Small nucleolar RNA SNORD30: a 70-nucleotide sequence from Carlito syrichta. Its family is annotated with RNA processing and nucleolus in the Gene Ontology. Lineage of the source: Eukaryota > Bilateria > Dipnotetrapodomorpha > Tarsiidae > Carlito.
RNA sequence: GUAUGUGAUGACUUACAUGGAAUCUUAUUUGGCUGAUGACUUCCUGUUGAGACUUGGAAAUAUGAUUUAU
Numbered sequence: 001g002u003a004u005g006u007g008a009u010g011a012c013u014u015a016c017a018u019g020g021a022a023u024c025u026u027a028u029u030u031g032g033c034u035g036a037u038g039a040c041u042u043c044c045u046g047u048u049g050a051g052a053c054u055u056g057g058a059a060a061u062a063u064g065a066u067u068u069a070u
Stems, first nucleotide, its partner, number of pairs: 023052005030046003